[Rfam]
The family of this 76-nucleotide sequence from Novosphingobium olei is "Makes More Granules Regulator RNA (mmgR)". For this family Rfam cites "Evidence for a second class of S-adenosylmethionine riboswitches and other regulatory RNA motifs in alpha-proteobacteria" (Corbino et al., Genome Biol, 2005). Rfam links the family to the GO terms response to nitrogen compound, protein binding and DNA-templated transcription, termination. Pairs were carried over by alignment from the consensus structure. By type it is a small RNA. About the family: SuhB later renamed mmgR (makes more granules regulator) was a putative non-coding RNA found multiple times in the Agrobacterium tumefaciens genome and related alpha-proteobacteria. Its Rfam clan is "suhB sRNA clan".

RNA sequence: CGGGGGUGCCUUUUAGGCAUCCUCUCCCAAAACUUUCCAAGGGGUCGGCGCAAGCCGGCCCCUUUUUUUGCCAACC
Numbered sequence: 001c002g003g004g005g006g007u008g009c010c011u012u013u014u015a016g017g018c019a020u021c022c023u024c025u026c027c028c029a030a031a032a033c034u035u036u037c038c039a040a041g042g043g044g045u046c047g048g049c050g051c052a053a054g055c056c057g058g059c060c061c062c063u064u065u066u067u068u069u070g071c072c073a074a075c076c
Stems, first nucleotide, its partner, number of pairs: 008018004042061008